[Rfam]
RNA: mir-204 microRNA precursor family
Organism: Fregata magnificens
RNA sequence: CUGACCCCUGUGAGCUUCCCUUUGUCAUCCUAUGCCUGAGCGAUGCCUGGAGGCUGGGACGGUGAAGGGAGGCCCACGGGCUGCCACA
Numbered sequence: 001c002u003g004a005c006c007c008c009u010g011u012g013a014g015c016u017u018c019c020c021u022u023u024g025u026c027a028u029c030c031u032a033u034g035c036c037u038g039a040g041c042g043a044u045g046c047c048u049g050g051a052g053g054c055u056g057g058g059a060c061g062g063u064g065a066a067g068g069g070a071g072g073c074c075c076a077c078g079g080g081c082u083g084c085c086a087c088a
Stems, first nucleotide, its partner, number of pairs: 017070006024063002028059005034054004